[Rfam]
Nucleotides: 066
Stems, first nucleotide, its partner, number of pairs: 005030008045066004050061003
Number, partner (000 for none) and nucleotide at each position: 001000g002000g003000g004000u005030g006029u007028u008027u009026u010025g011024c012023u013000g014000g015000c016000a017000u018000g019000g020000u021000g022000c023012a024011g025010c026009a027008a028007g029006g030005c031000a032000g033000g034000u035000u036000a037000a038000u039000u040000a041000c042000a043000u044000a045066c046065g047064c048063a049000a050061g051060g052059u053000c054000g055000g056000g057000c058000c059052g060051c061050c062000u063048u064047g065046u066045g

Overview
nhaA-I RNA: a 66-nucleotide RNA from Alcaligenes sp. EGD-AK7. The source organism's lineage runs through Bacteria, Pseudomonadati, Betaproteobacteria, Alcaligenaceae and Alcaligenes.